[Rfam]
RNA: small nucleolar RNA snoR117
Organism: Raphanus sativus
RNA sequence: AGCCUGUGAUGUUUGAGAUUGUCCGUACCAUCUGAGAUAUCUUUGAUGAGUUGUAUCCUCUAGGUUCUGAGGCUU
Number, nucleotide and partner (000 for none) at each position: 001a074002g073003c072004c071005u000006g000007u000008g000009a000010u000011g000012u000013u000014u000015g000016a000017g000018a000019u000020u000021g000022u000023c000024c000025g000026u000027a000028c000029c000030a000031u000032c000033u000034g000035a000036g000037a000038u000039a000040u000041c000042u000043u000044u000045g000046a000047u000048g000049a000050g000051u000052u000053g000054u000055a000056u000057c000058c000059u000060c000061u000062a000063g000064g000065u000066u000067c000068u000069g000070a000071g004072g003073c002074u001075u000